[Rfam]
RNA sequence: AGGUUUCGGAGCCGCGCACUCCUCCUCCCAGUGCGGCACCGAAUUGGCUGGCAGCCCUCCUCCUCCCAGUUGCCAGUCGCUAUACAUAGCGCCCACCGGACCUCCUCCCCCGGUGGGCGUUAUUG
Numbered sequence: 001a002g003g004u005u006u007c008g009g010a011g012c013c014g015c016g017c018a019c020u021c022c023u024c025c026u027c028c029c030a031g032u033g034c035g036g037c038a039c040c041g042a043a044u045u046g047g048c049u050g051g052c053a054g055c056c057c058u059c060c061u062c063c064u065c066c067c068a069g070u071u072g073c074c075a076g077u078c079g080c081u082a083u084a085c086a087u088a089g090c091g092c093c094c095a096c097c098g099g100a101c102c103u104c105c106u107c108c109c110c111c112g113g114u115g116g117g118c119g120u121u122a123u124u125g
Stems, first nucleotide, its partner, number of pairs: 007041003011037007046078010089120011